This 158-nucleotide RNA from Paenibacillus sp. JCM 10914 belongs to the Rfam family "Ribosomal protein L10 leader".

[Rfam]
RNA sequence: UAAAGUUGAAUAUGCUUACCGUAGACAGUAGGUGCCCUAAGCAGGCUUAAUUUCCUACCGAGGUGUUAUGAUAGAACGUCAACAGUUGAUCCGGUUACACCGGUCAAAUGAUGAUUCAUCAGGCCUUCGUAAUUCUACGGAGCUUUUUUAGUGCCCGU
Numbered sequence: 001u002a003a004a005g006u007u008g009a010a011u012a013u014g015c016u017u018a019c020c021g022u023a024g025a026c027a028g029u030a031g032g033u034g035c036c037c038u039a040a041g042c043a044g045g046c047u048u049a050a051u052u053u054c055c056u057a058c059c060g061a062g063g064u065g066u067u068a069u070g071a072u073a074g075a076a077c078g079u080c081a082a083c084a085g086u087u088g089a090u091c092c093g094g095u096u097a098c099a100c101c102g103g104u105c106a107a108a109u110g111a112u113g114a115u116u117c118a119u120c121a122g123g124c125c126u127u128c129g130u131a132a133u134u135c136u137a138c139g140g141a142g143c144u145u146u147u148u149u150a151g152u153g154c155c156c157g158u
Stems, first nucleotide, its partner, number of pairs: 028058005034046003125142007

The family's consensus secondary structure was predicted with CMfinder. Rfam's curators write: This family is a putative r-protein leader autoregulatory structure found in B. subtilis and other low-GC Gram-positive bacteria. Lineage of the source: Bacteria > Bacillati > Bacillota > Paenibacillaceae > Paenibacillus.